[Rfam]
RNA: MIR473 microRNA precursor family
RNA sequence: CUUAACCACUUUGCCACCAGGGUUUCCAACAGUACAUAUAAAAAAAAAAAAAGUUGGAAACCCUGGUGGCAAAGUGGUUUUUUU
Numbered sequence: 001c002u003u004a005a006c007c008a009c010u011u012u013g014c015c016a017c018c019a020g021g022g023u024u025u026c027c028a029a030c031a032g033u034a035c036a037u038a039u040a041a042a043a044a045a046a047a048a049a050a051a052a053g054u055u056g057g058a059a060a061c062c063c064u065g066g067u068g069g070c071a072a073a074g075u076g077g078u079u080u081u082u083u084u
Stems, first nucleotide, its partner, number of pairs: 006077010017066010